[Rfam]
RNA sequence: UAGUGUUAUAGCUCUUUUAGAAUUUGUCUAGCAUGUUUUCUGGUCCUCAUAGGACUAGAAGACACUC
Numbered sequence: 001u002a003g004u005g006u007u008a009u010a011g012c013u014c015u016u017u018u019a020g021a022a023u024u025u026g027u028c029u030a031g032c033a034u035g036u037u038u039u040c041u042g043g044u045c046c047u048c049a050u051a052g053g054a055c056u057a058g059a060a061g062a063c064a065c066u067c
Stems, first nucleotide, its partner, number of pairs: 034064014
Dot-bracket structure: .................................((((((((((((((...))))))))))))))...
U7 small nuclear RNA: a 67-nucleotide RNA sequence from Microcebus murinus. About the family: Animal histone pre-mRNAs are spliced by a different mechanism than nuclear pre-mRNAs and self-splicing introns. This processing involves the U7 snRNP, which contains only one RNA species: U7. The match comes from Rfam's covariance-model search (56 bits).